c-di-GMP-I-GGC riboswitch aptamer: a 128-nucleotide RNA sequence from Candidatus Brocadia sinica.
Taxonomically the source falls in Candidatus Brocadia sinica (Bacteria, Candidatus Brocadiia, Candidatus Brocadiaceae, Candidatus Brocadia).
The family has 40 seed sequences and 1,298 matches in Rfam 15.1.
For this family Rfam cites "Bioinformatic analysis of riboswitch structures uncovers variant classes with altered ligand specificity" (Weinberg et al., Proc Natl Acad Sci U S A, 2017).

[Rfam]
RNA sequence: CGCGAUAAAGGUAAACCCUGAGCAAUCAGGGGACGCAAAGUAAAGGGUCUUAGCUAAAAAAUGGUUUAAACGGUCGAACGGUUUAAACCGUUUAAGCGGCUAAAAAUAAGACAGCCUUACUGCCGAAG
Numbered sequence: 001c002g003c004g005a006u007a008a009a010g011g012u013a014a015a016c017c018c019u020g021a022g023c024a025a026u027c028a029g030g031g032g033a034c035g036c037a038a039a040g041u042a043a044a045g046g047g048u049c050u051u052a053g054c055u056a057a058a059a060a061a062u063g064g065u066u067u068a069a070a071c072g073g074u075c076g077a078a079c080g081g082u083u084u085a086a087a088c089c090g091u092u093u094a095a096g097c098g099g100c101u102a103a104a105a106a107u108a109a110g111a112c113a114g115c116c117u118u119a120c121u122g123c124c125g126a127a128g
Stems, first nucleotide, its partner, number of pairs: 001128001003125002011036002016031006034114001039121004044117003047112006